The family of this 106-nucleotide RNA sequence is "DUF3800-III RNA". It is annotated as a small RNA. Rfam's curators put it in the seed alignment. Pairs were carried over by alignment from the consensus structure, which is taken from published work.

RNA sequence: ACAGCGGCUUGUAAAGCCUGGAGACUCUGGUUGUCCGUAGGACAACCUAGCUGUUCCUGAAAUGGAAUGGGAUAGAUUGAAAUCGGAGCCCAGGGUAAGCCGCUUU
Numbered sequence: 001a002c003a004g005c006g007g008c009u010u011g012u013a014a015a016g017c018c019u020g021g022a023g024a025c026u027c028u029g030g031u032u033g034u035c036c037g038u039a040g041g042a043c044a045a046c047c048u049a050g051c052u053g054u055u056c057c058u059g060a061a062a063u064g065g066a067a068u069g070g071g072a073u074a075g076a077u078u079g080a081a082a083u084c085g086g087a088g089c090c091c092a093g094g095g096u097a098a099g100c101c102g103c104u105u106u
Stems, first nucleotide, its partner, number of pairs: 001106001003104009017094005025088003032044005051070007